[Rfam]
Source information
The record is a 66-nucleotide RNA sequence from Cricetulus griseus, which matches "Small nucleolar RNA SNORD109A" in Rfam. Gene Ontology terms of the family: nucleolus and RNA processing. The family is grouped with related families in Rfam's "SNORD74 clan". By type it is a C/D-box small nucleolar RNA. Taxonomically the source falls in Cricetulus (Eukaryota, Deuterostomia, Eutheria, Cricetinae). On this family, see Runte et al., Hum Mol Genet 2001: "The IC-SNURF-SNRPN transcript serves as a host for multiple small nucleolar RNA species and as an antisense RNA for UBE3A". Rfam's curators write: Humans have two copies of the SNORD109 gene, SNORD109A and SNORD109B.

RNA sequence: GGAUCAAUGAUGAUAACACUUGUCUGAGGAUGCUGAGCGAAUCAUGCCAAUGGGAAUCUGAGGUCC
Numbered sequence: 001g002g003a004u005c006a007a008u009g010a011u012g013a014u015a016a017c018a019c020u021u022g023u024c025u026g027a028g029g030a031u032g033c034u035g036a037g038c039g040a041a042u043c044a045u046g047c048c049a050a051u052g053g054g055a056a057u058c059u060g061a062g063g064u065c066c
Base pairs, nucleotide, nucleotide: 001066002065003064004063005062